[Rfam]
RNA: Bacterial RNase P class A
RNA sequence: GAAGUCGGCCGGACAGUCGCCGCUCGCCUUCGGGCGGGGGGAGGAAAGUCCGGGCUUCAUAGGGCAGGAUGCUGGCUAACGGCCAGGCGCCGUGAGGCGACGGAAAGUGGAACAGAGAGCUGAACCGCCGAUGGCCGGACCGAUAGCCGCAAGGGUAUCGAUUCGGAUCAGGCAAGGGUGAAAAGGUGGCCGCGAGAGCGGUGGCCGGUCGCAAGGCCGGUCCGGUAAGAGCGCACCGCUCGACUGGCGACAGUUCGAGGCAGGCUAAACCCCAUCCGAAGCAAGACCAAAUAGGCAAGCGUUGACGGGGCCCCCUGAGCUUGCGGGUAGGUUGCUUGAGGCGUGCAGUAAUGUACGUCCUAGAGGAAUGACUGUCGGCGGCGGGUAACCGCCGUGUCACAGGACCCGGCUUACAGGCCGACUUCGCAC
Numbered sequence: 001g002a003a004g005u006c007g008g009c010c011g012g013a014c015a016g017u018c019g020c021c022g023c024u025c026g027c028c029u030u031c032g033g034g035c036g037g038g039g040g041g042a043g044g045a046a047a048g049u050c051c052g053g054g055c056u057u058c059a060u061a062g063g064g065c066a067g068g069a070u071g072c073u074g075g076c077u078a079a080c081g082g083c084c085a086g087g088c089g090c091c092g093u094g095a096g097g098c099g100a101c102g103g104a105a106a107g108u109g110g111a112a113c114a115g116a117g118a119g120c121u122g123a124a125c126c127g128c129c130g131a132u133g134g135c136c137g138g139a140c141c142g143a144u145a146g147c148c149g150c151a152a153g154g155g156u157a158u159c160g161a162u163u164c165g166g167a168u169c170a171g172g173c174a175a176g177g178g179u180g181a182a183a184a185g186g187u188g189g190c191c192g193c194g195a196g197a198g199c200g201g202u203g204g205c206c207g208g209u210c211g212c213a214a215g216g217c218c219g220g221u222c223c224g225g226u227a228a229g230a231g232c233g234c235a236c237c238g239c240u241c242g243a244c245u246g247g248c249g250a251c252a253g254u255u256c257g258a259g260g261c262a263g264g265c266u267a268a269a270c271c272c273c274a275u276c277c278g279a280a281g282c283a284a285g286a287c288c289a290a291a292u293a294g295g296c297a298a299g300c301g302u303u304g305a306c307g308g309g310g311c312c313c314c315c316u317g318a319g320c321u322u323g324c325g326g327g328u329a330g331g332u333u334g335c336u337u338g339a340g341g342c343g344u345g346c347a348g349u350a351a352u353g354u355a356c357g358u359c360c361u362a363g364a365g366g367a368a369u370g371a372c373u374g375u376c377g378g379c380g381g382c383g384g385g386u387a388a389c390c391g392c393c394g395u396g397u398c399a400c401a402g403g404a405c406c407c408g409g410c411u412u413a414c415a416g417g418c419c420g421a422c423u424u425c426g427c428a429c
Stems, first nucleotide, its partner, number of pairs: 001425010011414001012376007020041002023038006046412003050409005055281004062312002067277005072086005087101001088099004102272002107270002109266002125177002127173003135165001185237004238261001239259005244253003285333004295324006306317004340359008